[Rfam]
Rfam assigns this 376-nucleotide RNA sequence from Bifidobacterium bombi to the family "Bacterial RNase P class A". The base pairs follow the family's consensus structure, which is taken from published work. Rfam describes the family as follows. Ribonuclease P (RNase P) is a ubiquitous endoribonuclease, found in archaea, bacteria and eukarya as well as chloroplasts and mitochondria. Gene Ontology terms of the family: dimeric ribonuclease P complex, tRNA processing and ribonuclease P activity. It scores 290 bits against the family's covariance model.
RNA sequence: UGAGACCUCUUGAUGAUCGCGGCUGGACCACCAUAGGGAAAAGCUGAGGAACUUCCGGGCUCCAAAGGGCAACGAUGGCGGAUAACGUCCGCCCAGGGUGACCUGAGAGACAGCGCCACAGAGAACAGACCGCCCGACUUCAGCCGGGUAAGGGUGAAACGGCGGUGCAAGAGACCACCGGGCCGCUGGUAACAGCGACCGCACGGCAAGCCUCAUCGGGAGCAAGGCCAAGUAGAAGGAAUGCAGAAUUUGCGCUGGGCUGCCCGCCCAGUCCUUCGGGUAGGCUGCUAGAGCCCUGCGGUAACGCAGGGUCGAGAUGGAUGAUCAUCCGUGCGGAGACGCACGACAAAACCCGGGGUAUAAGAGGUCUCAUUCC
Number, nucleotide and partner (000 for none) at each position: 001u372002g371003a370004g369005a368006c367007c366008u365009c364010u363011u000012g329013a328014u327015g326016a325017u324018c323019g000020c046021g045022g044023c043024u042025g000026g000027a000028c038029c000030a000031c000032c000033a000034u000035a000036g000037g000038g028039a000040a000041a000042a024043g023044c022045u021046g020047a000048g000049g000050a000051a359052c358053u357054u000055c356056c355057g354058g353059g352060c222061u221062c220063c219064a000065a000066a000067g000068g265069g264070c000071a000072a000073c218074g217075a216076u215077g214078g092079c091080g090081g089082a088083u000084a000085a000086c000087g000088u082089c081090c080091g079092c078093c107094c105095a104096g103097g102098g000099u000100g000101a000102c097103c096104u095105g094106a000107g093108a213109g212110a000111c000112a000113g211114c210115g207116c206117c205118a000119c000120a000121g000122a000123g000124a000125a000126c000127a000128g000129a000130c153131c152132g149133c148134c147135c146136g145137a000138c143139u000140u000141c000142a000143g138144c000145c136146g135147g134148g133149u132150a000151a000152g131153g130154g000155u000156g000157a000158a000159a000160c000161g179162g178163c000164g176165g175166u174167g000168c000169a000170a000171g000172a000173g000174a166175c165176c164177a000178c162179c161180g202181g200182g199183c000184c197185g196186c195187u194188g193189g000190u000191a000192a000193c188194a187195g186196c185197g184198a000199c182200c181201g000202c180203a000204c000205g117206g116207c115208a000209a000210g114211c113212c109213u108214c077215a076216u075217c074218g073219g063220g062221a061222g060223c000224a000225a000226g286227g285228c284229c283230a000231a000232g000233u000234a000235g277236a276237a275238g274239g273240a272241a000242u000243g000244c000245a000246g000247a000248a000249u000250u000251u000252g000253c000254g000255c000256u270257g269258g268259g267260c266261u000262g000263c000264c069265c068266g260267c259268c258269c257270a256271g000272u240273c239274c238275u237276u236277c235278g000279g000280g000281u000282a000283g229284g228285c227286u226287g000288c000289u000290a000291g000292a000293g312294c311295c310296c309297u308298g307299c306300g305301g000302u000303a000304a000305c300306g299307c298308a297309g296310g295311g294312u293313c000314g000315a000316g000317a000318u000319g000320g000321a000322u000323g018324a017325u016326c015327a014328u013329c012330c000331g000332u000333g000334c000335g000336g000337a000338g000339a000340c000341g000342c000343a000344c000345g000346a000347c000348a000349a000350a000351a000352c059353c058354c057355g056356g055357g053358g052359u051360a000361u000362a000363a010364g009365a008366g007367g006368u005369c004370u003371c002372a001373u000374u000375c000376c000